[Rfam]
RNA sequence: GCCGCACCUGCCUCGACGGAGGGAAAACAGGGUUACCCCGCCCUGCUGGUGCGGAUAUUGUGACGUUUAAGC
Dot-bracket structure: .(((((((..((((....)))).....(((((....[..[)))))..))))))).............]..].

Background
The family of this 72-nucleotide RNA sequence from Sulfuriferula nivalis is "int-alpA RNA". From the family's description: Acidobacteria (1 example), Planctomycetes (1 example), Proteobacteria. NCBI's taxonomy places the organism under Bacteria, Pseudomonadota, Betaproteobacteria, Nitrosomonadales, Sulfuriferula. By type it is a small RNA. The match comes from Rfam's covariance-model search (45 bits).